Background:
Rfam assigns this 120-nucleotide sequence from Acetomicrobium mobile to the family "Molybdenum/Tungsten riboswitch aptamer (Moco RNA motif)". It scores 77 bits against the family's covariance model. For this family Rfam cites "in molybdenum cofactor and tungsten cofactor metabolism" (Regulski et al., Mol Microbiol, 2008). The family has 160 seed sequences and 1,248 matches in Rfam 15.1. Pairs were carried over by alignment from the consensus structure, which is taken from published work.
[Rfam]
RNA sequence: AAAAUUAAAUGCCUCCGAAUCAAUGUAUCUAAGGGCAUAUUGCCUAUGAGCAUUGAUCGAUAGGGUCUUUUUGGAAACGAAAAGGCCUCCCGUCUGGAAAGGAGGAAGAGCUUUAAAACC
Number, nucleotide and partner (000 for none) at each position: 001a000002a000003a114004a113005u000006u000007a000008a000009a000010u000011g000012c105013c104014u103015c102016c101017g000018a000019a057020u056021c055022a054023a053024u052025g051026u000027a000028u049029c048030u000031a000032a000033g045034g044035g043036c042037a000038u000039a000040u000041u000042g036043c035044c034045u033046a000047u000048g029049a028050g000051c025052a024053u023054u022055g021056a020057u019058c000059g000060a000061u000062a000063g088064g087065g086066u085067c084068u083069u082070u081071u080072u079073g078074g000075a000076a000077a000078c073079g072080a071081a070082a069083a068084g067085g066086c065087c064088u063089c097090c096091c000092g000093u000094c000095u000096g090097g089098a000099a000100a000101g016102g015103a014104g013105g012106a000107a000108g000109a000110g000111c000112u000113u004114u003115a000116a000117a000118a000119c000120c000